[Rfam]
RNA sequence: AAGACUAUACUUUCAGGGAUCAUUUCUAUAGUACCUAACUGGAGAAAUGUGUCUCAAAAAUGUUUAGUCUCGCUGAUCACGAUGAAGAGCUGCGAUACUUCUCUCUGAGCGCGAAACGAGUACAAAGUUAUGACUUCGGUCAUGUGCUCCGUACUAUUGAUGACCGUUCACUGUCUCUUCGGGGGCAGCGAGGGGAGGAGUAUGAUCAGAGUGAC
Numbered sequence: 001a002a003g004a005c006u007a008u009a010c011u012u013u014c015a016g017g018g019a020u021c022a023u024u025u026c027u028a029u030a031g032u033a034c035c036u037a038a039c040u041g042g043a044g045a046a047a048u049g050u051g052u053c054u055c056a057a058a059a060a061u062g063u064u065u066a067g068u069c070u071c072g073c074u075g076a077u078c079a080c081g082a083u084g085a086a087g088a089g090c091u092g093c094g095a096u097a098c099u100u101c102u103c104u105c106u107g108a109g110c111g112c113g114a115a116a117c118g119a120g121u122a123c124a125a126a127g128u129u130a131u132g133a134c135u136u137c138g139g140u141c142a143u144g145u146g147c148u149c150c151g152u153a154c155u156a157u158u159g160a161u162g163a164c165c166g167u168u169c170a171c172u173g174u175c176u177c178u179u180c181g182g183g184g185g186c187a188g189c190g191a192g193g194g195g196a197g198g199a200g201u202a203u204g205a206u207c208a209g210a211g212u213g214a215c
Stems, first nucleotide, its partner, number of pairs: 002040002008033004015027004049065001051063001053062001077214004095203012109167003119155004126148003129144005171188007
Dot-bracket structure: .((....((((...((((.....))))..)))).....))........(.(.(........)).)...........((((..............((((((((((((..(((.......((((...((((((((......))))).)))...)))).........)))...(((((((....)))))))...)))))))))))).......)))).
Small nucleolar RNA U3: a 215-nucleotide sequence from Cynoglossus semilaevis. The match comes from Rfam's covariance-model search (140 bits). The organism belongs to Cynoglossus, within Eukaryota. Pairs were carried over by alignment from the consensus structure, which is taken from published work. The family has 87 seed sequences and 19,072 matches in Rfam 15.1. Small nucleolar RNAs (snoRNAs) are involved in the processing and modification of rRNA in the nucleolus. There are two main classes of snoRNAs: the box C/D class, and the box H/ACA class. U3 snoRNA is a member of the box C/D class. Indeed, the box C/D element is a subset of the six short sequence elements found in all U3 snoRNAs, namely boxes A, A', B, C, C', and D. The U3 snoRNA secondary structure is characterised by a small 5' domain (with boxes A and A'), and a larger 3' domain (with boxes B, C, C', and D), the two domains being linked by a single-stranded hinge. Boxes B and C form the B/C motif, which appears to be exclusive to U3 snoRNAs, and boxes C' and D form the C'/D motif. The latter is functionally similar to the C/D motifs found in other snoRNAs. The 5' domain and the hinge region act as a pre-rRNA-binding domain. The 3' domain has conserved protein-binding sites. Both the box B/C and box C'/D motifs are sufficient for nuclear retention of U3 snoRNA. The box C'/D motif is also necessary for nucleolar localisation, stability and hyper-methylation of U3 snoRNA. Both box B/C and C'/D motifs are involved in specific protein interactions and are necessary for the rRNA processing functions of U3 snoRNA. Clan: U3 clan. On this family, see Zwieb, Nucleic Acids Res 1997: "The uRNA database".